[Rfam]
RNA sequence: GAUUUGCGUUAAGGAUUGUAGUGGCAUCCUUUUUUUAUGUUUGUUCCUGUAUUUCGCGUAGUAUUCGCAAAAUGCAUGAAUAAUAAAUAAAAAAAGAUAUAACGAAAAGCCUGCCAAUUC
Numbered sequence: 001g002a003u004u005u006g007c008g009u010u011a012a013g014g015a016u017u018g019u020a021g022u023g024g025c026a027u028c029c030u031u032u033u034u035u036u037a038u039g040u041u042u043g044u045u046c047c048u049g050u051a052u053u054u055c056g057c058g059u060a061g062u063a064u065u066c067g068c069a070a071a072a073u074g075c076a077u078g079a080a081u082a083a084u085a086a087a088u089a090a091a092a093a094a095a096g097a098u099a100u101a102a103c104g105a106a107a108a109g110c111c112u113g114c115c116a117a118u119u120c
Stems, first nucleotide, its partner, number of pairs: 012112003016108002021103002026098003032093007
Flavo-1 RNA: a 120-nucleotide sequence from Lacinutrix sp. WUR7. It scores 50 bits against the family's covariance model. Rfam classes the family as a small RNA.